[Rfam]
RNA sequence: UCGUGCUAGAUGGGGAGUCAGCGGUGCCCUGUAACCUGCAAUCCGCUAUAGCAGGAUUGAAUUCCUCAUUUAGGCCUUAAUUUGUGAAGUCUGCCCUAUGCAAGUGGUGUUGAGAGUCAGGCCCCAUGCAAUGGAAGCCUGUGAACCUCGUCAGGUCCGGAAGGAAGCAGCGAUAAGCAGUUACUUUCAUGUGACGUGGAUCAGUCUGGCUUGAGCUAACUACAUAGGUAACGUUCAUAAAUUAUUGUCGAAAUGAGGUGCACGG
Numbered sequence: 001u002c003g004u005g006c007u008a009g010a011u012g013g014g015g016a017g018u019c020a021g022c023g024g025u026g027c028c029c030u031g032u033a034a035c036c037u038g039c040a041a042u043c044c045g046c047u048a049u050a051g052c053a054g055g056a057u058u059g060a061a062u063u064c065c066u067c068a069u070u071u072a073g074g075c076c077u078u079a080a081u082u083u084g085u086g087a088a089g090u091c092u093g094c095c096c097u098a099u100g101c102a103a104g105u106g107g108u109g110u111u112g113a114g115a116g117u118c119a120g121g122c123c124c125c126a127u128g129c130a131a132u133g134g135a136a137g138c139c140u141g142u143g144a145a146c147c148u149c150g151u152c153a154g155g156u157c158c159g160g161a162a163g164g165a166a167g168c169a170g171c172g173a174u175a176a177g178c179a180g181u182u183a184c185u186u187u188c189a190u191g192u193g194a195c196g197u198g199g200a201u202c203a204g205u206c207u208g209g210c211u212u213g214a215g216c217u218a219a220c221u222a223c224a225u226a227g228g229u230a231a232c233g234u235u236c237a238u239a240a241a242u243u244a245u246u247g248u249c250g251a252a253a254u255g256a257g258g259u260g261c262a263c264g265g
Stems, first nucleotide, its partner, number of pairs: 001265006009058003012030004017025003035055005064258007073249003079243010092230002096227005104220002106217003114212009124199005129191002132189005137182001139180004148173004156165003
RNA: Bacterial large signal recognition particle RNA
Organism: Clostridium tarantellae